[Rfam]
RNA: Small nucleolar RNA SNORA68
RNA sequence: CAGGCACCUGAACCCAGAACCGCUGUUUGUCGUAGCGGCAGGUUAAACAGGUGCAGAAAGCAAGCAAAUCUCAUCGCUUUCGGGGGCUGUGGUGAUGCCCCUCAAAGUGAAUUGGGAGGUUCUACUCCC
Numbered sequence: 001c002a003g004g005c006a007c008c009u010g011a012a013c014c015c016a017g018a019a020c021c022g023c024u025g026u027u028u029g030u031c032g033u034a035g036c037g038g039c040a041g042g043u044u045a046a047a048c049a050g051g052u053g054c055a056g057a058a059a060g061c062a063a064g065c066a067a068a069u070c071u072c073a074u075c076g077c078u079u080u081c082g083g084g085g086g087c088u089g090u091g092g093u094g095a096u097g098c099c100c101c102u103c104a105a106a107g108u109g110a111a112u113u114g115g116g117a118g119g120u121u122c123u124a125c126u127c128c129c
Stems, first nucleotide, its partner, number of pairs: 004054006018043001020041001022039006067121006077107004082102006